The family of this 118-nucleotide RNA sequence from Rattus norvegicus is "Small nucleolar RNA SNORA32". Rfam classes the family as an H/ACA-box small nucleolar RNA. About the family: ACA32 is a member of the H/ACA class of snoRNA that guide the sites of modification of uridines to pseudouridines. The match comes from Rfam's covariance-model search (82 bits). Lineage of the source: Eukaryota > Eumetazoa > Chordata > Eutheria > Rattus.

[Rfam]
RNA sequence: AGGUCCCAUCGUAGAAUAAGAAAGGUUUCUCAUUUGCUGUGGACAUGACCAUAAAGAAAAAUUCUCAUUAGGUUUUCCAUAUGCUACUUGGAUAGCAGUUAACCUGUUGGGAACAUUU
Numbered sequence: 001a002g003g004u005c006c007c008a009u010c011g012u013a014g015a016a017u018a019a020g021a022a023a024g025g026u027u028u029c030u031c032a033u034u035u036g037c038u039g040u041g042g043a044c045a046u047g048a049c050c051a052u053a054a055a056g057a058a059a060a061a062u063u064c065u066c067a068u069u070a071g072g073u074u075u076u077c078c079a080u081a082u083g084c085u086a087c088u089u090g091g092a093u094a095g096c097a098g099u100u101a102a103c104c105u106g107u108u109g110g111g112a113a114c115a116u117u118u
Base pairs, nucleotide, nucleotide: 003049004048005047006042007041008040024037025034064111065110066109067108071104072103073102074101082097083096084095